[Rfam]
RNA sequence: GCAUGCCUGGCUCCCUGCAUGCCAUUUGCAAAAUCCAUCCAGUGCAGUUGAUGGCCUUUGGAGAAUGGCGUGUGAGGAGCCGUGCAUGC
Number, nucleotide and partner (000 for none) at each position: 001g089002c088003a087004u086005g085006c084007c000008u082009g081010g080011c079012u078013c077014c076015c000016u074017g073018c072019a071020u070021g069022c068023c067024a066025u000026u000027u063028g000029c061030a000031a000032a000033a000034u000035c000036c000037a000038u000039c000040c000041a000042g000043u000044g000045c000046a000047g000048u000049u000050g000051a000052u000053g000054g000055c000056c000057u000058u000059u000060g000061g029062a000063g027064a000065a000066u024067g023068g022069c021070g020071u019072g018073u017074g016075a000076g014077g013078a012079g011080c010081c009082g008083u000084g006085c005086a004087u003088g002089c001
Notes:
The family of this 89-nucleotide sequence from Apium graveolens is "mir-160 microRNA precursor family". NCBI's taxonomy places the organism under Eukaryota, Streptophyta, Spermatophyta, Apiales, Apium.